[Rfam]
RNA sequence: GCUUCUAUACAUAGGAACAAAGAGAAGCAGAUUUAUUCUAUACCCAAUAAGUACCAAUACGCAAUGGGU
Numbered sequence: 001g002c003u004u005c006u007a008u009a010c011a012u013a014g015g016a017a018c019a020a021a022g023a024g025a026a027g028c029a030g031a032u033u034u035a036u037u038c039u040a041u042a043c044c045c046a047a048u049a050a051g052u053a054c055c056a057a058u059a060c061g062c063a064a065u066g067g068g069u
Base pairs, nucleotide, nucleotide: 003022004021006019008017010015043068044067045066051060052059053058

The family of this 69-nucleotide sequence from Olea europaea is "Plastid-clpP 5UTR RNA". By type it is a cis-regulatory element. About the family: Plastid clpP is a non-coding RNA (ncRNA) recognised in plastids. Pairs were carried over by alignment from the consensus structure, which was predicted with LocARNA.